This 149-nucleotide sequence belongs to the Rfam family "RT-16 RNA". The sequence is in the family's curated seed alignment. The family's consensus secondary structure is taken from published work. It is annotated as a small RNA.
RNA sequence: UCUUAGUUAGCAAUAAUAGCUAAACUAGGGCUACAUGCUUAUUAAUAGCGCUUUCUAAAGAAAGCCAUAAAAUUCAAUCAUGACAUUAAGUACUCUAGUUAGGAAAUAUGAAAUGAUGGUGUUUAUUUUUAAUUAAUGAGCUACAUAUC
Dot-bracket structure: (((((((((((.......))).))))))))......((((((((((((............................(((((..(((......((......)).....)))..))))).....)).......))))))))))........